MIR6217 microRNA precursor family: a 227-nucleotide RNA sequence from Miscanthus lutarioriparius. The family's consensus secondary structure was predicted with RNAalifold. Its family is annotated with RISC complex and miRNA-mediated post-transcriptional gene silencing in the Gene Ontology. The organism belongs to Miscanthus, within Eukaryota.
RNA sequence: CUGCUAUAAAAUAACUUAUUCUAUAGCCACUUUGAGUUACGAUAAUUACUAUGUUAAUUUACGAGAUUAUAGUAACUCCUUACUAAGUGGUUUACUUUAACGUUAUGAUAAAUAUCCCCAUAUGUUAUAGUAACCCAACUAUCGUAAAUAUGUAUUGGCAUUAUCGUAAAUUAGUAUAUAAAAUUAUCGUAAAUAAAGGUAUAUAGGGAGAGUAUAUUCAGUAGCCG
Numbered sequence: 001c002u003g004c005u006a007u008a009a010a011a012u013a014a015c016u017u018a019u020u021c022u023a024u025a026g027c028c029a030c031u032u033u034g035a036g037u038u039a040c041g042a043u044a045a046u047u048a049c050u051a052u053g054u055u056a057a058u059u060u061a062c063g064a065g066a067u068u069a070u071a072g073u074a075a076c077u078c079c080u081u082a083c084u085a086a087g088u089g090g091u092u093u094a095c096u097u098u099a100a101c102g103u104u105a106u107g108a109u110a111a112a113u114a115u116c117c118c119c120a121u122a123u124g125u126u127a128u129a130g131u132a133a134c135c136c137a138a139c140u141a142u143c144g145u146a147a148a149u150a151u152g153u154a155u156u157g158g159c160a161u162u163a164u165c166g167u168a169a170a171u172u173a174g175u176a177u178a179u180a181a182a183a184u185u186a187u188c189g190u191a192a193a194u195a196a197a198g199g200u201a202u203a204u205a206g207g208g209a210g211a212g213u214a215u216a217u218u219c220a221g222u223a224g225c226c227g
Stems, first nucleotide, its partner, number of pairs: 001227001003225005010218004014213004019208007029200005037192011050178013065165003069161002074155001080147004087142006093132004098127006107117001